mir-943 microRNA precursor family: a 96-nucleotide sequence from Pongo pygmaeus. Taxonomically the source falls in Pongo (Eukaryota, Bilateria, Gnathostomata, Amniota). The family's consensus secondary structure was predicted with RNAalifold. The sequence is in the family's curated seed alignment.

RNA sequence: GGGACGUUCUGGGCUCAGAGGGGGUGGGGGACGUUUGCCGGUCACUGCUGCUGGCCCUGACUGUUGCUGUCCUCCAGCCCCACUCAAAGGCAUCCC
Numbered sequence: 001g002g003g004a005c006g007u008u009c010u011g012g013g014c015u016c017a018g019a020g021g022g023g024g025u026g027g028g029g030g031a032c033g034u035u036u037g038c039c040g041g042u043c044a045c046u047g048c049u050g051c052u053g054g055c056c057c058u059g060a061c062u063g064u065u066g067c068u069g070u071c072c073u074c075c076a077g078c079c080c081c082a083c084u085c086a087a088a089g090g091c092a093u094c095c096c
Base pairs, nucleotide, nucleotide: 001096002095003094004093006091007090008089010086011085012084013083020081021080022079023078025076026075027074028073029072030071031070032069033068037067038066039063040062041061042060043059044058047055048054049053